[Rfam]
RNA sequence: UCAGUCGGUUGGACGGCCACCGAUACAGUUAAAAUGGUAUGGGAGGAAAGUCCGGGCUCCACGGGAACACGGUGCCGGGUAAUGCCCGGCGGAGGCGACUCUAGGGAUAGUGCCACAGAAAGUAAACCGCCUAGCCCUCUUGAAUUGGAGCUUCUAGGUAAGGGUGAAAGGGUGCGGUUAAGAGCUCACCGCGAUGCCGGCAACGGGAUUGGCAAGGUAAACCCCACCGGGAGCAAGACCGAAUAGGGAUGACAUGCUAGUUUUGUAAAAGAUUAGGUAGACGCGUUCCCGCGUAGUCAUCGGGUGGGUUGCGUGAGAUGGUCGGUAACGACCGUCCUAGAUGAAUGGCCGUCACCUAGGUUUUCUAGGUACAGAACCCGGCUUAUAGACCGUCUGAAUCU
Numbered sequence: 001u002c003a004g005u006c007g008g009u010u011g012g013a014c015g016g017c018c019a020c021c022g023a024u025a026c027a028g029u030u031a032a033a034a035u036g037g038u039a040u041g042g043g044a045g046g047a048a049a050g051u052c053c054g055g056g057c058u059c060c061a062c063g064g065g066a067a068c069a070c071g072g073u074g075c076c077g078g079g080u081a082a083u084g085c086c087c088g089g090c091g092g093a094g095g096c097g098a099c100u101c102u103a104g105g106g107a108u109a110g111u112g113c114c115a116c117a118g119a120a121a122g123u124a125a126a127c128c129g130c131c132u133a134g135c136c137c138u139c140u141u142g143a144a145u146u147g148g149a150g151c152u153u154c155u156a157g158g159u160a161a162g163g164g165u166g167a168a169a170g171g172g173u174g175c176g177g178u179u180a181a182g183a184g185c186u187c188a189c190c191g192c193g194a195u196g197c198c199g200g201c202a203a204c205g206g207g208a209u210u211g212g213c214a215a216g217g218u219a220a221a222c223c224c225c226a227c228c229g230g231g232a233g234c235a236a237g238a239c240c241g242a243a244u245a246g247g248g249a250u251g252a253c254a255u256g257c258u259a260g261u262u263u264u265g266u267a268a269a270a271g272a273u274u275a276g277g278u279a280g281a282c283g284c285g286u287u288c289c290c291g292c293g294u295a296g297u298c299a300u301c302g303g304g305u306g307g308g309u310u311g312c313g314u315g316a317g318a319u320g321g322u323c324g325g326u327a328a329c330g331a332c333c334g335u336c337c338u339a340g341a342u343g344a345a346u347g348g349c350c351g352u353c354a355c356c357u358a359g360g361u362u363u364u365c366u367a368g369g370u371a372c373a374g375a376a377c378c379c380g381g382c383u384u385a386u387a388g389a390c391c392g393u394c395u396g397a398a399u400c401u
Stems, first nucleotide, its partner, number of pairs: 001397004006392005011386001012353007020043002023040004028035001048384003052381005057233004065289001067287001070229005075089005090104001091102004105224002110222002112218003127163002129159006171190004176185001191213001192211004197206003237310004248301006281294005317336008
A member of the RNA family "Bacterial RNase P class A" from Candidatus Endolissoclinum faulkneri, 401 nucleotides long. The family's RNA type in Rfam is ribozyme. The match comes from Rfam's covariance-model search (308 bits).